[Rfam]
RNA sequence: UCAUUCCCCUAAAGCAUGUUAAACCUAACGCCCUAAGCCCAUAAACGGUAUGUGAAGAUGCAUACUACGGGAUCGUGUACUUGUACAAAUGAUAAUCUCACAGGAGAUUAUUAAUUAUAAGAAGGAGAAGAGGUUCCCUCUGAAUAAGAAAUAGGAAUAAGAGGGCAUGCUUAUU
Dot-bracket structure: ..........((((((((...(((((...........(.........((((((......)))))).....)....((((....))))..((((((((((....)))))))))).................)))))((((((..................))))))))))))).).
RNA: RAGATH-9 RNA